[Rfam]
c-di-GMP-I-GGC riboswitch aptamer: a 94-nucleotide RNA sequence from Roseisolibacter agri. A search with the family's covariance model found it, with a score of 65 bits. Pairs were carried over by alignment from the consensus structure, which is taken from published work. Rfam links the family to the GO term cyclic-di-GMP binding. On this family, see Weinberg et al., Proc Natl Acad Sci U S A 2017: "Bioinformatic analysis of riboswitch structures uncovers variant classes with altered ligand specificity".
RNA sequence: CGCGACAAAGGCAAACCCGGCGAAAGCCGGGGACGCAAAGCCACGAGGCUACCGCCCACGGGACACCGGGGCCACGCCGGUCGGGUUGCCGCAG
Numbered sequence: 001c002g003c004g005a006c007a008a009a010g011g012c013a014a015a016c017c018c019g020g021c022g023a024a025a026g027c028c029g030g031g032g033a034c035g036c037a038a039a040g041c042c043a044c045g046a047g048g049c050u051a052c053c054g055c056c057c058a059c060g061g062g063a064c065a066c067c068g069g070g071g072c073c074a075c076g077c078c079g080g081u082c083g084g085g086u087u088g089c090c091g092c093a094g
Base pairs, nucleotide, nucleotide: 001094003091004090011036012035016031017030018029019028020027021026034080039087040086041085042084044083045082046081047078048077049076